[Rfam]
Shown here is a 135-nucleotide RNA from Taylorella asinigenitalis, a member of the family "Betaproteobacteria-1 RNA". The sequence is in the family's curated seed alignment.
RNA sequence: AGUGCGUGUUGUCGGGGAAGCGAUAACUAAGCGGUAACGGCGGGGCAUGCAUGAAGUAUAUCUACCGUGGGAUAAGCAGCUGAGAUAGAUUAAGGGUGGCGAGGUUAGUGCCCGAGCUGUGAACGACUGACGAGU
Numbered sequence: 001a002g003u004g005c006g007u008g009u010u011g012u013c014g015g016g017g018a019a020g021c022g023a024u025a026a027c028u029a030a031g032c033g034g035u036a037a038c039g040g041c042g043g044g045g046c047a048u049g050c051a052u053g054a055a056g057u058a059u060a061u062c063u064a065c066c067g068u069g070g071g072a073u074a075a076g077c078a079g080c081u082g083a084g085a086u087a088g089a090u091u092a093a094g095g096g097u098g099g100c101g102a103g104g105u106u107a108g109u110g111c112c113c114g115a116g117c118u119g120u121g122a123a124c125g126a127c128u129g130a131c132g133a134g135u
Stems, first nucleotide, its partner, number of pairs: 002052009040068004060090005077119004094113004104131006